RNA sequence: AACAAUUUGUCCCGAGUCCCACGGCAUUUUAAAAAAGUCCCUAUCUUUCCAAAAAUAGGGAUCUUUCCAAAAAUAGGGACUUUUUUAAAACGCCGUGGGACGCGGGACAAAUUGUUAA
Numbered sequence: 001a002a003c004a005a006u007u008u009g010u011c012c013c014g015a016g017u018c019c020c021a022c023g024g025c026a027u028u029u030u031a032a033a034a035a036a037g038u039c040c041c042u043a044u045c046u047u048u049c050c051a052a053a054a055a056u057a058g059g060g061a062u063c064u065u066u067c068c069a070a071a072a073a074u075a076g077g078g079a080c081u082u083u084u085u086u087a088a089a090a091c092g093c094c095g096u097g098g099g100a101c102g103c104g105g106g107a108c109a110a111a112u113u114g115u116u117a118a
Base pairs, nucleotide, nucleotide: 001116002115003114004113005112006111007110008109009108010107011106012105013104014103016101017100018099019098020097021096022095023094024093025092027090028089029088030087031086032085033084034083035082036081037080038079039078040077041076042075043074044073